[Rfam]
RNA: small nucleolar RNA snoR135
RNA sequence: CUGGCAGGGAUGGUGUGUAUCGGCUCUGUGCUACAAUAAAUGCACUCUGUUUCCGAAAGAGUUCCCUGCAAAAUCAAUUGCAUGAGCAUGAGGAAGAUGGGCAGUUGUUUUUCAUCCUAGUCGUUGGAAUUAUCAACAAUCAUCUUCCAAACAUCA
Numbered sequence: 001c002u003g004g005c006a007g008g009g010a011u012g013g014u015g016u017g018u019a020u021c022g023g024c025u026c027u028g029u030g031c032u033a034c035a036a037u038a039a040a041u042g043c044a045c046u047c048u049g050u051u052u053c054c055g056a057a058a059g060a061g062u063u064c065c066c067u068g069c070a071a072a073a074u075c076a077a078u079u080g081c082a083u084g085a086g087c088a089u090g091a092g093g094a095a096g097a098u099g100g101g102c103a104g105u106u107g108u109u110u111u112u113c114a115u116c117c118u119a120g121u122c123g124u125u126g127g128a129a130u131u132a133u134c135a136a137c138a139a140u141c142a143u144c145u146u147c148c149a150a151a152c153a154u155c156a
Stems, first nucleotide, its partner, number of pairs: 004069007015045006092148009104137004